[Rfam]
RNA: Archaeal large subunit ribosomal RNA, nucleotides 10 to 542
Organism: Halomicrobium mukohataei
RNA sequence: CUACUGUGCCGCCUGGUGGAUAGCUCGGCUCGGAAGCCGAUGACGGACGUGCCAAGCUGCGAAAAGCCAUGGGGAGCCGCACGGAGGCGAAGAACCAUGGAUCUCCGAAUGGGAAUCCCUCUUACAAUUGCUUCGCGCAAUGGGGAACCUCGAGAAUUGAAACAUCUUAGUAUCGAGAGGAACAGAAAGCGCAAUGCGAUGUCGUUACUAACCGCGAGUGAACGCGACACAGCCCAAACCGAAGCCCUCACGGGCAAUGUGGUGUACGGACUACCUUUCAUCGGCCGACCAUCUUCACGAAGUCUUCUGGAACGAAGCGUGAUACAGGGUGACAACCCCGUAGUGAAGGUCAGUACGUCGUGUGGUAACUCCAGAGUAGCGGGGGUUGGAAAUCCCUCGUCAAGACGGCAGGCAUCGACUGCCAAGGCUAAAUACUCUCCGAGACCGAUAGUGAACAAGUAGCGUGAGCGAACGCUGAAAAGCACCCUCAGACGGGGGUUGCAAUAGGGCUUGAAAUCAGGUGGCGAUCGAGC
Numbered sequence: 001c002u003a004c005u006g007u008g009c010c011g012c013c014u015g016g017u018g019g020a021u022a023g024c025u026c027g028g029c030u031c032g033g034a035a036g037c038c039g040a041u042g043a044c045g046g047a048c049g050u051g052c053c054a055a056g057c058u059g060c061g062a063a064a065a066g067c068c069a070u071g072g073g074g075a076g077c078c079g080c081a082c083g084g085a086g087g088c089g090a091a092g093a094a095c096c097a098u099g100g101a102u103c104u105c106c107g108a109a110u111g112g113g114a115a116u117c118c119c120u121c122u123u124a125c126a127a128u129u130g131c132u133u134c135g136c137g138c139a140a141u142g143g144g145g146a147a148c149c150u151c152g153a154g155a156a157u158u159g160a161a162a163c164a165u166c167u168u169a170g171u172a173u174c175g176a177g178a179g180g181a182a183c184a185g186a187a188a189g190c191g192c193a194a195u196g197c198g199a200u201g202u203c204g205u206u207a208c209u210a211a212c213c214g215c216g217a218g219u220g221a222a223c224g225c226g227a228c229a230c231a232g233c234c235c236a237a238a239c240c241g242a243a244g245c246c247c248u249c250a251c252g253g254g255c256a257a258u259g260u261g262g263u264g265u266a267c268g269g270a271c272u273a274c275c276u277u278u279c280a281u282c283g284g285c286c287g288a289c290c291a292u293c294u295u296c297a298c299g300a301a302g303u304c305u306u307c308u309g310g311a312a313c314g315a316a317g318c319g320u321g322a323u324a325c326a327g328g329g330u331g332a333c334a335a336c337c338c339c340g341u342a343g344u345g346a347a348g349g350u351c352a353g354u355a356c357g358u359c360g361u362g363u364g365g366u367a368a369c370u371c372c373a374g375a376g377u378a379g380c381g382g383g384g385g386u387u388g389g390a391a392a393u394c395c396c397u398c399g400u401c402a403a404g405a406c407g408g409c410a411g412g413c414a415u416c417g418a419c420u421g422c423c424a425a426g427g428c429u430a431a432a433u434a435c436u437c438u439c440c441g442a443g444a445c446c447g448a449u450a451g452u453g454a455a456c457a458a459g460u461a462g463c464g465u466g467a468g469c470g471a472a473c474g475c476u477g478a479a480a481a482g483c484a485c486c487c488u489c490a491g492a493c494g495g496g497g498g499u500u501g502c503a504a505u506a507g508g509g510c511u512u513g514a515a516a517u518c519a520g521g522u523g524g525c526g527a528u529c530g531a532g533c
Stems, first nucleotide, its partner, number of pairs: 007526010022511001023475002027446002029443006035436002044107004048061003067100006076088003111120003127141005148179001149177005159166002189197002201228005211219002231429004239262003244255004272367004282360004296345003302318001304317004321325001327339003379400007407423005462469002